[Rfam]
RNA sequence: UUAGUGGAAGCUUUAGCUAUUGAACUGUUUUGUCUCUAACAGAGAACAAUUUGUAGGUACUUUGACAGAGGGGCACAAAACAGUUCAGUAGCUAAAGCGUCCACUAAC
Numbered sequence: 001u002u003a004g005u006g007g008a009a010g011c012u013u014u015a016g017c018u019a020u021u022g023a024a025c026u027g028u029u030u031u032g033u034c035u036c037u038a039a040c041a042g043a044g045a046a047c048a049a050u051u052u053g054u055a056g057g058u059a060c061u062u063u064g065a066c067a068g069a070g071g072g073g074c075a076c077a078a079a080a081c082a083g084u085u086c087a088g089u090a091g092c093u094a095a096a097g098c099g100u101c102c103a104c105u106a107a108c
Base pairs, nucleotide, nucleotide: 001107002106003105004104005103006102011097012096013095014094015093016092017091018090019089020088021087022086023085024084025083026082027081028080029069030068031067032066033065034064046054047053048052
The family of this 108-nucleotide sequence from Plutella xylostella is "mir-8517 microRNA precursor family". The organism belongs to Plutella, within Eukaryota. Gene Ontology terms of the family: miRNA-mediated post-transcriptional gene silencing and RISC complex.